Rfam assigns this 87-nucleotide RNA sequence from Nocardioides panacis to the family "c-di-GMP-II-GAG riboswitch aptamer".
NCBI's taxonomy places the organism under Bacteria, Actinomycetota, Propionibacteriales, Nocardioidaceae, Nocardioides.
Its family is annotated with cyclic-di-GMP binding and regulation of gene expression in the Gene Ontology.
The literature on the family includes a 2017 paper in Proc Natl Acad Sci U S A by Weinberg et al., "Bioinformatic analysis of riboswitch structures uncovers variant classes with altered ligand specificity".
A search with the family's covariance model found it, with a score of 43 bits.
RNA sequence: GGCCGGGAGCGGGGCAGUGAUACGUCCGGGUGAUUGGUCGCCCAGGUGCCGGACGAGGAGCCAGAGGCGAAACCGACGCUCGUCGAG
Numbered sequence: 001g002g003c004c005g006g007g008a009g010c011g012g013g014g015c016a017g018u019g020a021u022a023c024g025u026c027c028g029g030g031u032g033a034u035u036g037g038u039c040g041c042c043c044a045g046g047u048g049c050c051g052g053a054c055g056a057g058g059a060g061c062c063a064g065a066g067g068c069g070a071a072a073c074c075g076a077c078g079c080u081c082g083u084c085g086a087g
Base pairs, nucleotide, nucleotide: 003085005083007081008080009079010078011077013062014061015060023055024054025053026052027051028050029049036074037073038070039069040068041067042066